[Rfam]
Rfam assigns this 116-nucleotide RNA sequence from Agromyces aureus to the family "SAM (S-adenosyl methionine) riboswitch aptamer". SAM-IV is a mRNA element that regulates gene expression via direct sensing of S-adenosylmethionine (SAM or AdoMet). SAM-IV riboswitches share conserved nucleotide positions with the previously described SAM-I riboswitches sequence analysis and molecular recognition experiments suggest that SAM-I and SAM-IV riboswitches share similar ligand binding sites, but have different scaffolds. The family is grouped with related families in Rfam's "SAM clan". A search with the family's covariance model found it, with a score of 68 bits. A reference for the family is Weinberg et al. (2008), "The aptamer core of SAM-IV riboswitches mimics the ligand-binding site of SAM-I riboswitches", RNA. NCBI's taxonomy places the organism under Bacteria, Actinomycetota, Actinomycetes, Micrococcales, Agromyces. Gene Ontology terms of the family: S-adenosylmethionine metabolic process and regulation of gene expression.
RNA sequence: GUUCACGAGUGGCAGCUUCAGGUACCUGGCCGGCUGCCCCGCAGCCCCCUUCCAUCGAGCGGGGUGCCCGAGGGGAAGAACCGGCCCGAGGCAUCCGUGUCGGGCAAGUCGAUGGG
Numbered sequence: 001g002u003u004c005a006c007g008a009g010u011g012g013c014a015g016c017u018u019c020a021g022g023u024a025c026c027u028g029g030c031c032g033g034c035u036g037c038c039c040c041g042c043a044g045c046c047c048c049c050u051u052c053c054a055u056c057g058a059g060c061g062g063g064g065u066g067c068c069c070g071a072g073g074g075g076a077a078g079a080a081c082c083g084g085c086c087c088g089a090g091g092c093a094u095c096c097g098u099g100u101c102g103g104g105c106a107a108g109u110c111g112a113u114g115g116g
Base pairs, nucleotide, nucleotide: 001081002080003079004078009039011038012037013036014035015034016033021031022030041067042066045064046063047062049059050058084105085104086103087102088101089100091098092097